RNA sequence: UGAGAUGAAACAAGUGUUUGGACAUGCGAUCUCACACUAGUUUCAUCUUAUG
Numbered sequence: 001u002g003a004g005a006u007g008a009a010a011c012a013a014g015u016g017u018u019u020g021g022a023c024a025u026g027c028g029a030u031c032u033c034a035c036a037c038u039a040g041u042u043u044c045a046u047c048u049u050a051u052g
Base pairs, nucleotide, nucleotide: 001050002049003048004047005046006045007044008043009042010041011040013038014037015036016035017034018029019028020027